[Rfam]
RNA sequence: UUUGUUGAUGGUCAUCUAUUCAUCAUUCUAGGUUUUGCACCCAUUAUCCUAUGGUUAGAUGAACAUCAACAAACA
Numbered sequence: 001u002u003u004g005u006u007g008a009u010g011g012u013c014a015u016c017u018a019u020u021c022a023u024c025a026u027u028c029u030a031g032g033u034u035u036u037g038c039a040c041c042c043a044u045u046a047u048c049c050u051a052u053g054g055u056u057a058g059a060u061g062a063a064c065a066u067c068a069a070c071a072a073a074c075a
Stems, first nucleotide, its partner, number of pairs: 001073010012062007020054004031049002033046001036043002
Dot-bracket structure: ((((((((((.(((((((.((((.......(((..((....))..).)).)))).))))))).))))))))))..

The record is a 75-nucleotide RNA sequence from Nicotiana attenuata, which matches "MIR827_2 microRNA precursor family" in Rfam. A search with the family's covariance model found it, with a score of 71 bits. Lineage of the source: Eukaryota > Streptophyta > eudicotyledons > lamiids > Nicotiana. Rfam 15.1 lists 14 matches to the family in 12 species. Its Rfam clan is "MIR827 microRNA precursor clan". Pairs were carried over by alignment from the consensus structure, which was predicted with RNAalifold.